[Rfam]
RNA sequence: GGGACUGACACGGGGUGCCGCGCACCAAGCCGGCUGAGACCAGACCCGUUGAACCUGUCCGGUUAGCACCGGCGAAGGGAUGUCCCGUAUGGCUUCA
Numbered sequence: 001g002g003g004a005c006u007g008a009c010a011c012g013g014g015g016u017g018c019c020g021c022g023c024a025c026c027a028a029g030c031c032g033g034c035u036g037a038g039a040c041c042a043g044a045c046c047c048g049u050u051g052a053a054c055c056u057g058u059c060c061g062g063u064u065a066g067c068a069c070c071g072g073c074g075a076a077g078g079g080a081u082g083u084c085c086c087g088u089a090u091g092g093c094u095u096c097a
Stems, first nucleotide, its partner, number of pairs: 007084004011048004016042001017034004054078003059072004